[Rfam]
RNA sequence: CUUUCCGUUUAUUUGCUGCUAUGGGCUCUCAGUGCUAUCAGCAGUUGUACAAAUGGGAUAAACUAAUAUUGGGCCAUUGUAAAUGCAGAUGAAGUAACAGUGUCAUCUCUCCUGCGUGGUCUAGAUGUUG
Dot-bracket structure: ..((((((......((((((.((.((.......))))..)))))).......))))))..........((((((((.((((.....((((((.((....)).))))))....))))))))))))......
RNA: Small nucleolar RNA SNORA20
Organism: Oryctolagus cuniculus